[Rfam]
RNA sequence: UCUAACUGCGGGUAGCCAAGGCUACGCCGUAUACUCUGCGUGCUCGAAUUAACGUUUAAGCGAUCUUUCAAGAUAGCCGACCGCAGGGGGAAAAGCCGCUGAAUGCGGCUUUUCUUUUAGGCCGC
Numbered sequence: 001u002c003u004a005a006c007u008g009c010g011g012g013u014a015g016c017c018a019a020g021g022c023u024a025c026g027c028c029g030u031a032u033a034c035u036c037u038g039c040g041u042g043c044u045c046g047a048a049u050u051a052a053c054g055u056u057u058a059a060g061c062g063a064u065c066u067u068u069c070a071a072g073a074u075a076g077c078c079g080a081c082c083g084c085a086g087g088g089g090g091a092a093a094a095g096c097c098g099c100u101g102a103a104u105g106c107g108g109c110u111u112u113u114c115u116u117u118u119a120g121g122c123c124g125c
Stems, first nucleotide, its partner, number of pairs: 007031005012025005034088006044080003047056003060077002063074003089115010
Dot-bracket structure: ......((((((((((....))))).)))))..((((((....((((((....)))...((.(((......))).)))))..))))))((((((((((.......))))))))))..........
This 125-nucleotide RNA sequence belongs to the Rfam family "DUF3800-I RNA". From the family's description: Actinobacteria, Firmicutes, Fusobacteria, Proteobacteria (1 example), Tenericutes (2 examples). It is annotated as a small RNA. The sequence is in the family's curated seed alignment.